Background
The record is an 85-nucleotide RNA sequence from Singulisphaera acidiphila, which matches "tRNA" in Rfam. The family's consensus secondary structure is taken from published work. It scores 60 bits against the family's covariance model.
[Rfam]
RNA sequence: GCCGGCGUGGCGGAAUGGCAGACGCAGAGGACUUAAAAUCCUCAGGGGGGUAACCCCCGUGUGGGUUCGAAUCCCACCGCCGGUA
Numbered sequence: 001g002c003c004g005g006c007g008u009g010g011c012g013g014a015a016u017g018g019c020a021g022a023c024g025c026a027g028a029g030g031a032c033u034u035a036a037a038a039u040c041c042u043c044a045g046g047g048g049g050g051u052a053a054c055c056c057c058c059g060u061g062u063g064g065g066u067u068c069g070a071a072u073c074c075c076a077c078c079g080c081c082g083g084u085a
Base pairs, nucleotide, nucleotide: 001084002083003082004081005080006079007078010025011024012023027043028042029041030040031039061077062076063075064074065073
NCBI's taxonomy places the organism under Bacteria, Pseudomonadati, Isosphaerales, Singulisphaera, Singulisphaera acidiphila.